The family of this 193-nucleotide RNA sequence from Ktedonosporobacter rubrisoli is "Ribosomal protein L10 leader".
Rfam classes the family as a cis-regulatory leader.
A search with the family's covariance model found it, with a score of 51 bits.
Rfam's curators write: This family is a putative r-protein leader autoregulatory structure found in B. subtilis and other low-GC Gram-positive bacteria. It is located in the 5' untranslated regions of mRNAs encoding ribosomal proteins L10 and L12 (rplJ-rplL). A Rho-independent transcription terminator structure that is probably involved in regulation is included at the 3' end.
The organism belongs to Ktedonosporobacter, within Bacteria.
The family's consensus secondary structure was predicted with CMfinder.
Nucleotides: 193
Base pairs, nucleotide, nucleotide: 028071029070030069031068032067033066034046035045036044152178153177154176155175156174157173158172159171160170161169
Number, partner (000 for none) and nucleotide at each position: 001000a002000a003000a004000c005000u006000u007000a008000a009000u010000a011000g012000g013000c014000u015000u016000u017000a018000a019000c020000c021000g022000a023000a024000g025000a026000c027000a028071g029070c030069a031068a032067g033066c034046a035045u036044g037000c038000c039000a040000c041000a042000g043000g044036c045035a046034u047000a048000u049000a050000a051000a052000c053000g054000a055000c056000g057000u058000a059000a060000a061000c062000g063000u064000c065000g066033g067032c068031u069030u070029g071028c072000c073000g074000a075000g076000g077000g078000a079000u080000c081000a082000c083000a084000c085000a086000a087000a088000g089000c090000g091000c092000u093000a094000a095000c096000g097000c098000u099000g100000u101000g102000c103000u104000g105000c106000g107000c108000c109000a110000u111000c112000u113000u114000u115000c116000g117000c118000g119000a120000g121000c122000a123000g124000c125000g126000g127000c128000a129000c130000g131000a132000g133000c134000a135000g136000c137000a138000g139000a140000a141000u142000g143000a144000u145000u146000u147000u148000u149000c150000c151000a152178g153177g154176c155175c156174u157173u158172c159171g160170g161169u162000u163000g164000u165000u166000g167000a168000a169161a170160u171159c172158g173157a174156a175155g176154g177153c178152c179000u180000u181000u182000u183000u184000c185000u186000a187000u188000a189000c190000c191000a192000u193000c